[Rfam]
RNA sequence: AUGAUUGUAUGUGGAGAGUACGCGAAAGCGUCGCCGAAGGAGCAAGUAACAGAGGUUGCGAAUCUCUCAGGCAAAAAGACUCAUACAUGACG
Dot-bracket structure: .....((((((.(......((((....)))).(((((..(((...((((......))))....))))).))).......).)))))).....
The family of this 92-nucleotide sequence from Bacillus sp. OxB-1 is "Glycine riboswitch aptamer". This family represents the bacterial glycine riboswitch. It scores 68 bits against the family's covariance model.